[Rfam]
RNA sequence: AGGUCUUGGGAAACAUUCAACGCUGUCGGUGAGUUUUGUCAAUGAAGUCAAACCAUCGACUGUUGAGUGUACCCUGCGGCUUU
Numbered sequence: 001a002g003g004u005c006u007u008g009g010g011a012a013a014c015a016u017u018c019a020a021c022g023c024u025g026u027c028g029g030u031g032a033g034u035u036u037u038g039u040c041a042a043u044g045a046a047g048u049c050a051a052a053c054c055a056u057c058g059a060c061u062g063u064u065g066a067g068u069g070u071a072c073c074c075u076g077c078g079g080c081u082u083u
Stems, first nucleotide, its partner, number of pairs: 001083003004079002007076002014069009025060007033053004
This 83-nucleotide sequence from Anolis carolinensis belongs to the Rfam family "mir-181 microRNA precursor family".
A reference for the family is Ambros (2001), "microRNAs: tiny regulators with great potential", Cell.
Pairs were carried over by alignment from the consensus structure, which was predicted with PFOLD.